[Rfam]
RNA sequence: CUGUCUGCCUGUCUACACUUGCUGUGCAGAACUUCCUGCACCUGUACAGCAGGCACAGACAGGCAGACAG
Dot-bracket structure: (((..(((((((((...(.((((((.(((............))).)))))).)...)))))))))..)))
Numbered sequence: 001c002u003g004u005c006u007g008c009c010u011g012u013c014u015a016c017a018c019u020u021g022c023u024g025u026g027c028a029g030a031a032c033u034u035c036c037u038g039c040a041c042c043u044g045u046a047c048a049g050c051a052g053g054c055a056c057a058g059a060c061a062g063g064c065a066g067a068c069a070g
Stems, first nucleotide, its partner, number of pairs: 001070003006065009018053001020051006027044003